[Rfam]
RNA sequence: CCGUCCGCCCCUCGGAAACGUCCGGGCCCCGCGUGUCCACGCCCGCUACCCUGGCGGGGUGCGUGCCACGCCUGCGGGCGUGGCAGCGCAUAGCCGACAGCCGUCGCACCCCAGGGAGCAGUCCAUG
Numbered sequence: 001c002c003g004u005c006c007g008c009c010c011c012u013c014g015g016a017a018a019c020g021u022c023c024g025g026g027c028c029c030c031g032c033g034u035g036u037c038c039a040c041g042c043c044c045g046c047u048a049c050c051c052u053g054g055c056g057g058g059g060u061g062c063g064u065g066c067c068a069c070g071c072c073u074g075c076g077g078g079c080g081u082g083g084c085a086g087c088g089c090a091u092a093g094c095c096g097a098c099a100g101c102c103g104u105c106g107c108a109c110c111c112c113a114g115g116g117a118g119c120a121g122u123c124c125a126u127g
Base pairs, nucleotide, nucleotide: 060090061089062088063087065084066083067082068081069080070079071078093107094106096105097104098103